[Rfam]
RNA sequence: CCGCACAUUCUUCGGGUUUCGGGACGAUGUAACCGUGAAUAAAUUGGUUCGUUGUCGUCGAAACCUGCAAAAUGUUCGU
Numbered sequence: 001c002c003g004c005a006c007a008u009u010c011u012u013c014g015g016g017u018u019u020c021g022g023g024a025c026g027a028u029g030u031a032a033c034c035g036u037g038a039a040u041a042a043a044u045u046g047g048u049u050c051g052u053u054g055u056c057g058u059c060g061a062a063a064c065c066u067g068c069a070a071a072a073u074g075u076u077c078g079u
Base pairs, nucleotide, nucleotide: 002078003077005075006074013067014066015065016064017063018062019061020060021059031049032048033047034046

A member of the RNA family "mir-981 microRNA precursor family" from Bombyx mori, 79 nucleotides long.
The organism belongs to Bombyx, within Eukaryota.
On this family, see Legeai et al., BMC Genomics 2010: "Bioinformatic prediction, deep sequencing of microRNAs and expression analysis during phenotypic plasticity in the pea aphid, Acyrthosiphon pisum".
A search with the family's covariance model found it, with a score of 58 bits.
The family has 17 seed sequences and 180 matches in Rfam 15.1.
The family's consensus secondary structure was predicted with RNAalifold.